[Rfam]
RNA: Lnt RNA
RNA sequence: CAGGAGUCGGGAACUUCUUUCGCAUACUCCUGUUAAAUAACAGCUUGAAAGAAAUUUAAAGAAUAU
Numbered sequence: 001c002a003g004g005a006g007u008c009g010g011g012a013a014c015u016u017c018u019u020u021c022g023c024a025u026a027c028u029c030c031u032g033u034u035a036a037a038u039a040a041c042a043g044c045u046u047g048a049a050a051g052a053a054a055u056u057u058a059a060a061g062a063a064u065a066u
Base pairs, nucleotide, nucleotide: 001032002031003030004029005028006027